[Rfam]
RNA sequence: UGGCCUAAGGCCAUUUGUUUGGCCUCUCUAUGACUGUAGAGAGGUCAAGUGAAAACAUGCUAGACUAACAUCCAAACAUUUGGGAGUUAUCAGGGCCACCAGUCUUUCAAGCCCAGACUGAGUUGGUAGUAUAAUACUCCCACAGUC
Number, nucleotide and partner (000 for none) at each position: 001u000002g000003g065004c000005c063006u062007a061008a000009g000010g000011c000012c000013a000014u000015u000016u000017g000018u000019u000020u047021g046022g045023c044024c043025u042026c041027u040028c000029u000030a000031u000032g000033a000034c000035u000036g000037u000038a000039g000040a027041g026042a025043g024044g023045u022046c021047a020048a000049g000050u000051g000052a000053a000054a000055a000056c000057a000058u000059g000060c000061u007062a006063g005064a000065c003066u000067a000068a000069c000070a000071u000072c000073c000074a000075a000076a000077c000078a000079u000080u000081u000082g000083g140084g139085a138086g137087u000088u000089a000090u000091c000092a000093g000094g000095g127096c126097c000098a000099c122100c120101a119102g118103u117104c116105u115106u000107u000108c000109a000110a000111g000112c000113c000114c000115a105116g104117a103118c102119u101120g100121a000122g099123u000124u000125g000126g096127u095128a000129g000130u000131a000132u000133a000134a000135u000136a000137c086138u085139c084140c083141c000142a000143c000144a000145g000146u000147c000
RNA: Small nucleolar RNA U109